The family of this 89-nucleotide RNA sequence from Streptomyces sp. MS191 is "sodF sRNA". Pairs were carried over by alignment from the consensus structure.

RNA sequence: UCGUCCUGCUCGUGAUCGUCUUCUCAGCCUUCGCGUGCGGACGGAAUGACGAAGAACCCCCGUGAUGACGUGCAUCACGGGGGUUCUUC
Numbered sequence: 001u002c003g004u005c006c007u008g009c010u011c012g013u014g015a016u017c018g019u020c021u022u023c024u025c026a027g028c029c030u031u032c033g034c035g036u037g038c039g040g041a042c043g044g045a046a047u048g049a050c051g052a053a054g055a056a057c058c059c060c061c062g063u064g065a066u067g068a069c070g071u072g073c074a075u076c077a078c079g080g081g082g083g084u085u086c087u088u089c
Base pairs, nucleotide, nucleotide: 001044002043003042006040007039008038009037011035012034013033014032015031018028019027051089052088053087054086055085056084057083058082059081060080061079062078063077064076065075066074
Dot-bracket structure: (((..((((.(((((..((.......))..))))).)))).)))......((((((((((((((((.......))))))))))))))))